[Rfam]
RNA sequence: UCUGAUUUCUGGGCUCCGGCCUCCAUCCGCUCCCAGGAGCGCUCGGCAUCACUUCCCCGGUGCCGAAGCUCCAGCGGCUGGGGACCAGAACCCAGAAACCGGAUCCA
Numbered sequence: 001u002c003u004g005a006u007u008u009c010u011g012g013g014c015u016c017c018g019g020c021c022u023c024c025a026u027c028c029g030c031u032c033c034c035a036g037g038a039g040c041g042c043u044c045g046g047c048a049u050c051a052c053u054u055c056c057c058c059g060g061u062g063c064c065g066a067a068g069c070u071c072c073a074g075c076g077g078c079u080g081g082g083g084a085c086c087a088g089a090a091c092c093c094a095g096a097a098a099c100c101g102g103a104u105c106c107a
Base pairs, nucleotide, nucleotide: 010094011093012092013091015089016088018086019085021083022082023081024080025079027077028076029075030074031073036072037071038070039069040068043066044065045064046063047062048061049060

Rfam assigns this 107-nucleotide RNA from Yimella sp. cx-51 to the family "mraW RNA". Rfam 15.1 lists 851 matches to the family in 821 species. The organism belongs to Yimella, within Bacteria. The base pairs follow the family's consensus structure, which is taken from published work. The family's RNA type in Rfam is cis-regulatory element.